RNA sequence: AAAGCACGGGUAAGUCCUGUACGACCAGCUCCCAUUGAACUCCCCCAGGGCCUGACGGCAGCAAGGGUAAAUGGUUGUAGCGGUGCGAUGCAGACAGCUUACCCACCC
Numbered sequence: 001a002a003a004g005c006a007c008g009g010g011u012a013a014g015u016c017c018u019g020u021a022c023g024a025c026c027a028g029c030u031c032c033c034a035u036u037g038a039a040c041u042c043c044c045c046c047a048g049g050g051c052c053u054g055a056c057g058g059c060a061g062c063a064a065g066g067g068u069a070a071a072u073g074g075u076u077g078u079a080g081c082g083g084u085g086c087g088a089u090g091c092a093g094a095c096a097g098c099u100u101a102c103c104c105a106c107c108c
Stems, first nucleotide, its partner, number of pairs: 008104008017093005022087002024084002